[Rfam]
RNA: Small nucleolar RNA SNORA69
Organism: Balearica regulorum
RNA sequence: AAAGCAGGCUGCAAUUACAGUGCUUCAUUCUGUGGGAGUACUGCCAUUUUUCUGCUGAGAGUAACUCUGUUAACACUGUCUUCAGUUUCACCUGUACCGUGGUGAAACCGUUUGUACUUAACAUGUACAAGU
Numbered sequence: 001a002a003a004g005c006a007g008g009c010u011g012c013a014a015u016u017a018c019a020g021u022g023c024u025u026c027a028u029u030c031u032g033u034g035g036g037a038g039u040a041c042u043g044c045c046a047u048u049u050u051u052c053u054g055c056u057g058a059g060a061g062u063a064a065c066u067c068u069g070u071u072a073a074c075a076c077u078g079u080c081u082u083c084a085g086u087u088u089c090a091c092c093u094g095u096a097c098c099g100u101g102g103u104g105a106a107a108c109c110g111u112u113u114g115u116a117c118u119u120a121a122c123a124u125g126u127a128c129a130a131g132u
Stems, first nucleotide, its partner, number of pairs: 003056006018043009068123006077116001083110001085108008